Rfam assigns this 266-nucleotide RNA sequence from Alaudala cheleensis to the family "RNase MRP".
The source organism's lineage runs through Eukaryota, Deuterostomia, Archosauria, Saurischia and Alaudala.
Pairs were carried over by alignment from the consensus structure, which is taken from published work.

RNA sequence: GGAUGUUCUGAAGACCUGCUUGCUAGGCCACGCAUGGAGGACCUUGGUCCCCCAUGGGCCCCACGCCCACCCAGGCGGAAGUCCCCAGACCACCAGCAGAGAGUGCCAGGCACUGAUGUGCCCCUGCCCGCCGCUGCUCCACGCCACCCUCCACCAAGACAGCCGCGGGCCAAGCAGGUGAGUGCGGGGAGAGCCCUCAUCACAGCCAUAGACACACAGGUAGUGUGGCAGACAGGCCAACAAAACAGGGCUCACUCUCAGGCUUU
Numbered sequence: 001g002g003a004u005g006u007u008c009u010g011a012a013g014a015c016c017u018g019c020u021u022g023c024u025a026g027g028c029c030a031c032g033c034a035u036g037g038a039g040g041a042c043c044u045u046g047g048u049c050c051c052c053c054a055u056g057g058g059c060c061c062c063a064c065g066c067c068c069a070c071c072c073a074g075g076c077g078g079a080a081g082u083c084c085c086c087a088g089a090c091c092a093c094c095a096g097c098a099g100a101g102a103g104u105g106c107c108a109g110g111c112a113c114u115g116a117u118g119u120g121c122c123c124c125u126g127c128c129c130g131c132c133g134c135u136g137c138u139c140c141a142c143g144c145c146a147c148c149c150u151c152c153a154c155c156a157a158g159a160c161a162g163c164c165g166c167g168g169g170c171c172a173a174g175c176a177g178g179u180g181a182g183u184g185c186g187g188g189g190a191g192a193g194c195c196c197u198c199a200u201c202a203c204a205g206c207c208a209u210a211g212a213c214a215c216a217c218a219g220g221u222a223g224u225g226u227g228g229c230a231g232a233c234a235g236g237c238c239a240a241c242a243a244a245a246c247a248g249g250g251c252u253c254a255c256u257c258u259c260a261g262g263c264u265u266u
Stems, first nucleotide, its partner, number of pairs: 003266001005264001007262005014221005022076001023074002026071002037052001039050004080252002083250003096106003109122005125193001127191001131189002134187004140182001142180001151177001154174001162170003223237002226234002